This 87-nucleotide RNA sequence from Clostridium puniceum belongs to the Rfam family "Group II catalytic intron D1-D4-1".
RNA sequence: CAACUUAUAUAGUGAUAUAUAACUGAAUUUAUCAGAAGUCAGUAGAAGUCAUAGUAACUCCGCUAAACGCGAUAGCGGACGAAGGAC
Numbered sequence: 001c002a003a004c005u006u007a008u009a010u011a012g013u014g015a016u017a018u019a020u021a022a023c024u025g026a027a028u029u030u031a032u033c034a035g036a037a038g039u040c041a042g043u044a045g046a047a048g049u050c051a052u053a054g055u056a057a058c059u060c061c062g063c064u065a066a067a068c069g070c071g072a073u074a075g076c077g078g079a080c081g082a083a084g085g086a087c
Base pairs, nucleotide, nucleotide: 001025002024005022006021007020008019009018010017011016039046040045048087049086050085059079060078061077062076063075064074065073
Dot-bracket structure: ((..(((((((....))))))).)).............((....)).(((........(((((((.......))))))).....)))
Group II introns are found in rRNA, tRNA and mRNA of organelles in fungi, plants and protists, and also in mRNA in bacteria. A reference for the family is Bonen and Vogel (2001), "The ins and outs of group II introns", Trends Genet. It scores 60 bits against the family's covariance model.